RNA sequence: UGGACAGGGGGGUUCCUGCUGACCGGCAGGGCCUGUCCAGCAGGUCGCGCGAAGGCGUGAUCAGUGGUUGUCGCUCGGGGGUGAUCGCCG
Numbered sequence: 001u002g003g004a005c006a007g008g009g010g011g012g013u014u015c016c017u018g019c020u021g022a023c024c025g026g027c028a029g030g031g032c033c034u035g036u037c038c039a040g041c042a043g044g045u046c047g048c049g050c051g052a053a054g055g056c057g058u059g060a061u062c063a064g065u066g067g068u069u070g071u072c073g074c075u076c077g078g079g080g081g082u083g084a085u086c087g088c089c090g
Stems, first nucleotide, its partner, number of pairs: 001039008014031007043062008
A member of the RNA family "che1 RNA" from Streptomyces purpureus, 90 nucleotides long. The family's consensus secondary structure is taken from published work. Rfam classes the family as a small RNA.